[Rfam]
RNA: Iron response element I
RNA sequence: CUGUCUCUGCUUCGACAGUGUUUGGACAGAGCAG
Numbered sequence: 001c002u003g004u005c006u007c008u009g010c011u012u013c014g015a016c017a018g019u020g021u022u023u024g025g026a027c028a029g030a031g032c033a034g
Base pairs, nucleotide, nucleotide: 001034002033003032004031006030007029009027011026012025013024014023015022016020